[Rfam]
RNA sequence: CCUAGCACUUCGUACUAGGCUGUGUUAUGCCGUACCUCCGGUACU
Numbered sequence: 001c002c003u004a005g006c007a008c009u010u011c012g013u014a015c016u017a018g019g020c021u022g023u024g025u026u027a028u029g030c031c032g033u034a035c036c037u038c039c040g041g042u043a044c045u
Stems, first nucleotide, its partner, number of pairs: 001019005007013002032044005
Record summary
Rfam assigns this 45-nucleotide RNA from Lentisphaera araneosa to the family "Acido-Lenti-1 RNA". It is annotated as a small RNA. Taxonomically the source falls in Lentisphaera araneosa (Bacteria, Lentisphaerota, Lentisphaeria, Lentisphaerales).